[Rfam]
RNA: Clostridiales-1 RNA
Organism: Blautia sp. CAG:37
RNA sequence: GAUAUCCCAGGGUUCAAAGUUCGAAAGCUGUUCGUGCUUGCACGAUAAAGCGUUCGAAUUUGGAACCCGCCAAACAUGAGGAAGCAGCGCCAGCGGAUUCCGAAUGUUUGCAGAAUUGCGGAGCAAUUCGUGAAUAUC
Numbered sequence: 001g002a003u004a005u006c007c008c009a010g011g012g013u014u015c016a017a018a019g020u021u022c023g024a025a026a027g028c029u030g031u032u033c034g035u036g037c038u039u040g041c042a043c044g045a046u047a048a049a050g051c052g053u054u055c056g057a058a059u060u061u062g063g064a065a066c067c068c069g070c071c072a073a074a075c076a077u078g079a080g081g082a083a084g085c086a087g088c089g090c091c092a093g094c095g096g097a098u099u100c101c102g103a104a105u106g107u108u109u110g111c112a113g114a115a116u117u118g119c120g121g122a123g124c125a126a127u128u129c130g131u132g133a134a135u136a137u138c
Base pairs, nucleotide, nucleotide: 001138002137003136004135005134011067012066013065014064017061018060019059020058021057022056023055024054025053027051028050029049031047032045033044034043035042036041071110072109073108074107075106076105077104080101081100082099083098087094088093113129114128115127116126117125118124119123